[Rfam]
RNA sequence: UCCCAUCCCGCGAAAUGUCGCCGAUUGUGGCGGCGCCGCCCCGUCUGGAAGUGAUGACGAUAAGGCUAGCGGGGUGGGUUGCA
Numbered sequence: 001u002c003c004c005a006u007c008c009c010g011c012g013a014a015a016u017g018u019c020g021c022c023g024a025u026u027g028u029g030g031c032g033g034c035g036c037c038g039c040c041c042c043g044u045c046u047g048g049a050a051g052u053g054a055u056g057a058c059g060a061u062a063a064g065g066c067u068a069g070c071g072g073g074g075u076g077g078g079u080u081g082c083a
Base pairs, nucleotide, nucleotide: 002078003077004076005075006074007073008072009071010070011069016035017034018033019032020031021030022029038066039065040064